Shown here is a 95-nucleotide sequence from a Streptosporangiales bacterium, a member of the family "Glycine riboswitch aptamer".
From the family's description: This family represents the bacterial glycine riboswitch. Glycine riboswitches usually consist of two metabolite-binding aptamers domains with similar structures in tandem. The aptamers cooperatively bind glycine to regulate the expression of downstream genes.
It scores 67 bits against the family's covariance model.

RNA sequence: CGACCCUGCGCGGGAGAGCCCCUCGUAGCCAGCCAGGGGCGCCGAAGGAGCAACUCUCCCCGGAAACUCUCAGGCGCAAAGACCGUGCGGGCUAG
Numbered sequence: 001c002g003a004c005c006c007u008g009c010g011c012g013g014g015a016g017a018g019c020c021c022c023u024c025g026u027a028g029c030c031a032g033c034c035a036g037g038g039g040c041g042c043c044g045a046a047g048g049a050g051c052a053a054c055u056c057u058c059c060c061c062g063g064a065a066a067c068u069c070u071c072a073g074g075c076g077c078a079a080a081g082a083c084c085g086u087g088c089g090g091g092c093u094a095g
Stems, first nucleotide, its partner, number of pairs: 006090008020039004041075003044071002048069003054062001